[Rfam]
RNA sequence: CUUGCUAAAGGCAAACUCGUUGCGAAACGAGGGCGCAAAACUAUGGGUCUCUCUUUUAAAAGAUUGAGACUGCCAGGUUGCCAAGG
Numbered sequence: 001c002u003u004g005c006u007a008a009a010g011g012c013a014a015a016c017u018c019g020u021u022g023c024g025a026a027a028c029g030a031g032g033g034c035g036c037a038a039a040a041c042u043a044u045g046g047g048u049c050u051c052u053c054u055u056u057u058a059a060a061a062g063a064u065u066g067a068g069a070c071u072g073c074c075a076g077g078u079u080g081c082c083a084a085g086g
Stems, first nucleotide, its partner, number of pairs: 001086001003083002011036002016031006034072001039079004044075003047070005
RNA: c-di-GMP-I-GGC riboswitch aptamer